[Rfam]
RNA sequence: UCGCAUCAUGCGCCGCAGGCAGGAGCGGGGGACCCAAGGUUUGUGCCGCGGGCGGAGGUUGAGAGACCACCGGCCCGGCUUGGGGUGAAGUGUCCGAUAUCUACGUACGGCGGUACGCGGAUCGCGGACACCGGGUACUCACUGCACCCGAACCCGACAGCUCACCUCGCAGGCGUCGGUGAGGGGAAAC
Numbered sequence: 001u002c003g004c005a006u007c008a009u010g011c012g013c014c015g016c017a018g019g020c021a022g023g024a025g026c027g028g029g030g031g032a033c034c035c036a037a038g039g040u041u042u043g044u045g046c047c048g049c050g051g052g053c054g055g056a057g058g059u060u061g062a063g064a065g066a067c068c069a070c071c072g073g074c075c076c077g078g079c080u081u082g083g084g085g086u087g088a089a090g091u092g093u094c095c096g097a098u099a100u101c102u103a104c105g106u107a108c109g110g111c112g113g114u115a116c117g118c119g120g121a122u123c124g125c126g127g128a129c130a131c132c133g134g135g136u137a138c139u140c141a142c143u144g145c146a147c148c149c150g151a152a153c154c155c156g157a158c159a160g161c162u163c164a165c166c167u168c169g170c171a172g173g174c175g176u177c178g179g180u181g182a183g184g185g186g187a188a189a190c
Stems, first nucleotide, its partner, number of pairs: 011175004025170006035082004083155003091130006133149004
The family of this 190-nucleotide sequence from Streptomyces indicus is "c-di-AMP riboswitch aptamer (ydaO/yuaA leader)".
Gene Ontology terms of the family: cyclic-di-AMP binding and regulation of gene expression.
Rfam's curators write: This family represents a conserved RNA structure found upstream of the ydaO and yuaA genes in Bacillus subtilis and related genes in other bacteria.